[Rfam]
RNA sequence: GGAAGCGUUUCGUCACCGGUGUGGCGCCCGGUCUUCAAAACCGGUGGUGGGCAGAGAUGUCCAUGGUAGGUUCGACCCCUAUACGCUUCC
Numbered sequence: 001g002g003a004a005g006c007g008u009u010u011c012g013u014c015a016c017c018g019g020u021g022u023g024g025c026g027c028c029c030g031g032u033c034u035u036c037a038a039a040a041c042c043g044g045u046g047g048u049g050g051g052c053a054g055a056g057a058u059g060u061c062c063a064u065g066g067u068a069g070g071u072u073c074g075a076c077c078c079c080u081a082u083a084c085g086c087u088u089c090c
Stems, first nucleotide, its partner, number of pairs: 001090008011026006028044005047064005067081004
The record is a 90-nucleotide RNA, which matches "Selenocysteine transfer RNA" in Rfam.